Rfam assigns this 141-nucleotide sequence from Tetragenococcus muriaticus to the family "Ribosomal protein L20 leader". For this family Rfam cites "Diverse mechanisms for regulating ribosomal protein synthesis in Escherichia coli" (Zengel and Lindahl, Prog Nucleic Acid Res Mol Biol, 1994). Rfam links the family to the GO term regulation of gene expression. About the family: This family is a putative r-protein leader autoregulatory structure found in B. subtilis and other low-GC Gram-positive bacteria. It is located in the 5' untranslated regions of mRNAs encoding initiation factor 3 followed by ribosomal proteins L35 and L20 (infC-rpmI-rplT). A Rho-independent transcription terminator structure that is probably involved in regulation is included at the 3' end.
Nucleotides: 141
Stems, first nucleotide, its partner, number of pairs: 011026006028052003034047002037044002104127009
Number, partner (000 for none) and nucleotide at each position: 001000a002000a003000a004000u005000g006000g007000a008000a009000g010000u011026a012025g013024a014023a015022g016021c017000a018000c019000c020000c021016g022015c023014u024013u025012c026011u027000c028052g029051c030050c031000u032000u033000a034047g035046c036000g037044a038043c039000a040000a041000a042000u043038g044037u045000g046035g047034c048000u049000g050030g051029g052028c053000a054000g055000a056000a057000u058000a059000g060000u061000u062000a063000u064000u065000u066000u067000a068000c069000a070000c071000u072000a073000g074000g075000g076000a077000u078000c079000g080000u081000u082000a083000u084000g085000u086000c087000u088000u089000a090000g091000u092000g093000c094000a095000a096000a097000a098000g099000u100000a101000c102000g103000u104127g105126c106125g107124g108123g109122u110121u111120c112119u113000u114000a115000u116000a117000g118000a119112a120111g121110a122109a123108c124107u125106c126105g127104u128000u129000u130000u131000u132000u133000u134000a135000u136000g137000a138000a139000a140000a141000a